[Rfam]
Overview:
Shown here is a 237-nucleotide sequence from Arabidopsis thaliana, a member of the family "MIR447 microRNA precursor family". The sequence is in the family's curated seed alignment.

RNA sequence: CAUUCUUAAUAUAUAAUACUACUUUUUCAUCCAUUAAACCCCUUACAAUGUCGAGUAAACGAAGCAUCUGUCCCCUGGUAUUGUCUUCGAGCUUGGUGUUUUUUUCUAGCCAACUCCAAGUUCUCGAGUUGAUCAUUGUUUGUAUUCUUGAGACAUUAUUUGGGGACGAGAUGUUUUGUUGACUCGAUAUAAGAAGGGGCUUUAUGGAAGAAAUUGUAGUAUUAUAUAUCGAGAGUG
Dot-bracket structure: (((((((.(((((.((((((((..((((.(((((.((.((((((...(((((((((.((((((((((((((((((.((((.(((..((.((..((...............................................))..)).)).))).)))).)))))).)))))))))))).)))))))))...)))))).)).))))).))))..)))))))).))))).)))))))
Pairs were carried over by alignment from the consensus structure, which was predicted with RNAalifold. Lineage of the source: Eukaryota > Streptophytina > Embryophyta > Magnoliopsida > Arabidopsis.